[Rfam]
RNA sequence: AGCCUAAAGCGUCCGUAGCCGGACCCGCAAAUCCCUGGGUAAAUCCUGGUGCUCAACAUCAGGAAUUCCGGGGAGACUGCGGGUCUUGGGACCGGGAGAGGCCGGAGGUACUCCCGGGGUAGGGGUAAAAUCCUGUAAUCCCGGGGGGACCACCUGUGGCGAAAGCGUCCGGCUUGAACGGCUCCGACGGUGAGGGACGAAGGCCAGGGGAGCAAACCGGAUUAGAUACCCGGGUAGUCCUGGCUGUAAACGCUGCCCGCUUGGUGUUGUCGGUCUCUCGGGGGCCGGCAGUGCCGGAGCGAAGGUGUUAAGCGGGCCGCUUGGGGAGUACGGCCGCAAGGCUGAAACUUAAAGGAAU
Numbered sequence: 001a002g003c004c005u006a007a008a009g010c011g012u013c014c015g016u017a018g019c020c021g022g023a024c025c026c027g028c029a030a031a032u033c034c035c036u037g038g039g040u041a042a043a044u045c046c047u048g049g050u051g052c053u054c055a056a057c058a059u060c061a062g063g064a065a066u067u068c069c070g071g072g073g074a075g076a077c078u079g080c081g082g083g084u085c086u087u088g089g090g091a092c093c094g095g096g097a098g099a100g101g102c103c104g105g106a107g108g109u110a111c112u113c114c115c116g117g118g119g120u121a122g123g124g125g126u127a128a129a130a131u132c133c134u135g136u137a138a139u140c141c142c143g144g145g146g147g148g149a150c151c152a153c154c155u156g157u158g159g160c161g162a163a164a165g166c167g168u169c170c171g172g173c174u175u176g177a178a179c180g181g182c183u184c185c186g187a188c189g190g191u192g193a194g195g196g197a198c199g200a201a202g203g204c205c206a207g208g209g210g211a212g213c214a215a216a217c218c219g220g221a222u223u224a225g226a227u228a229c230c231c232g233g234g235u236a237g238u239c240c241u242g243g244c245u246g247u248a249a250a251c252g253c254u255g256c257c258c259g260c261u262u263g264g265u266g267u268u269g270u271c272g273g274u275c276u277c278u279c280g281g282g283g284g285c286c287g288g289c290a291g292u293g294c295c296g297g298a299g300c301g302a303a304g305g306u307g308u309u310a311a312g313c314g315g316g317c318c319g320c321u322u323g324g325g326g327a328g329u330a331c332g333g334c335c336g337c338a339a340g341g342c343u344g345a346a347a348c349u350u351a352a353a354g355g356a357a358u
Stems, first nucleotide, its partner, number of pairs: 001321003009318001011198004016192001018191003022085007030078001032074008045063007089185003092181003100174007107151002111147008122133003159166002203244006212238002217233004255317006263295014299306002323350003332343004
About this RNA
The family of this 358-nucleotide part of an RNA from Candidatus Aciduliprofundum boonei is "Archaeal small subunit ribosomal RNA". The family is grouped with related families in Rfam's "SSU clan". The family has 86 seed sequences and 709 matches in Rfam 15.1.